[Rfam]
RNA sequence: UUCUGCAUGACGAAGAAAAUCAAUCGGAUUCCCACUGAUUCUUCAUGAUUUGAACUACAGCUACUUCUGACAGAU
Numbered sequence: 001u002u003c004u005g006c007a008u009g010a011c012g013a014a015g016a017a018a019a020u021c022a023a024u025c026g027g028a029u030u031c032c033c034a035c036u037g038a039u040u041c042u043u044c045a046u047g048a049u050u051u052g053a054a055c056u057a058c059a060g061c062u063a064c065u066u067c068u069g070a071c072a073g074a075u
Stems, first nucleotide, its partner, number of pairs: 002074004
RNA: Small nucleolar RNA R12